Shown here is a 149-nucleotide sequence from Paenibacillus sp. Leaf72, a member of the family "Guanidine-I riboswitch aptamer". From the family's description: This family represents a conserved RNA structure found upstream of the ykkC and yxkD genes in Bacillus subtilis and related genes in other bacteria. The function of this family is unclear although it has been suggested that it may function to switch on efflux pumps and detoxification systems in response to harmful environmental molecules.
[Rfam]
RNA sequence: CGACAAGCUGUCUAGGGUUCCGUUGAAAGGCUGCAAGCGUGCUUGCGCCUUAUCAAGUCUGGUCCAAGAGACGGCGUACGGCGGGCGUGCACCCAUUGAGAGAUGACAGCAACCGCUGUGUAACACGGAAGGAUAAAAGCCUGGGAGAU
Numbered sequence: 001c002g003a004c005a006a007g008c009u010g011u012c013u014a015g016g017g018u019u020c021c022g023u024u025g026a027a028a029g030g031c032u033g034c035a036a037g038c039g040u041g042c043u044u045g046c047g048c049c050u051u052a053u054c055a056a057g058u059c060u061g062g063u064c065c066a067a068g069a070g071a072c073g074g075c076g077u078a079c080g081g082c083g084g085g086c087g088u089g090c091a092c093c094c095a096u097u098g099a100g101a102g103a104u105g106a107c108a109g110c111a112a113c114c115g116c117u118g119u120g121u122a123a124c125a126c127g128g129a130a131g132g133a134u135a136a137a138a139g140c141c142u143g144g145g146a147g148a149u
Base pairs, nucleotide, nucleotide: 007075008074009073010072011071012070015065016064020062021061022059023056024055025054026053076121077120078119079118080117081116082115083114124144126147130142131141132140